[Rfam]
RNA sequence: AAAUAAUAGAAGCCCACUUCUUGUAUAUAAUCAGUAAUAGGGUCUGAUUGUUUCUACCUGGCAACCGUAAAUCGCCAGACUACAAGGAAGUUUGAAUAGAUU
Numbered sequence: 001a002a003a004u005a006a007u008a009g010a011a012g013c014c015c016a017c018u019u020c021u022u023g024u025a026u027a028u029a030a031u032c033a034g035u036a037a038u039a040g041g042g043u044c045u046g047a048u049u050g051u052u053u054c055u056a057c058c059u060g061g062c063a064a065c066c067g068u069a070a071a072u073c074g075c076c077a078g079a080c081u082a083c084a085a086g087g088a089a090g091u092u093u094g095a096a097u098a099g100a101u102u
Stems, first nucleotide, its partner, number of pairs: 018088008029049006058078005064072001
Shown here is a 102-nucleotide sequence from Bacillus licheniformis, a member of the family "Purine riboswitch aptamer". Riboswitches are metabolite binding domains within certain messenger RNAs that serve as precision sensors for their corresponding targets. Allosteric rearrangement of mRNA structure is mediated by ligand binding, and this results in modulation of gene expression. A class of riboswitches that selectively recognises guanine and becomes saturated at concentrations as low as 5 nM. In Bacillus subtilis, this mRNA motif is located on at least five separate transcriptional units that together encode 17 genes that are mostly involved in purine transport and purine nucleotide biosynthesis. It has also been shown that some members of this family are specific for adenine instead. Pairs were carried over by alignment from the consensus structure, which is taken from published work.